[Rfam]
RNA sequence: GGGGUAUUAGCUCAUCCGGCUAGAGCGUUAGACUGGCAGUCUAAAGGUGAUCGGUUCGAGUCCGAUAUACUCCA
Numbered sequence: 001g002g003g004g005u006a007u008u009a010g011c012u013c014a015u016c017c018g019g020c021u022a023g024a025g026c027g028u029u030a031g032a033c034u035g036g037c038a039g040u041c042u043a044a045a046g047g048u049g050a051u052c053g054g055u056u057c058g059a060g061u062c063c064g065a066u067a068u069a070c071u072c073c074a
Base pairs, nucleotide, nucleotide: 001073002072003071004070005069006068007067010026011025012024013023028044029043030042031041032040050066051065052064053063054062
A member of the RNA family "tRNA" from Bacteroidales bacterium Barb6XT, 74 nucleotides long. Lineage of the source: Bacteria > Pseudomonadati > Bacteroidota > Bacteroidia > Bacteroidales. Rfam classes the family as a transfer RNA. The match comes from Rfam's covariance-model search (62 bits). Pairs were carried over by alignment from the consensus structure, which is taken from published work.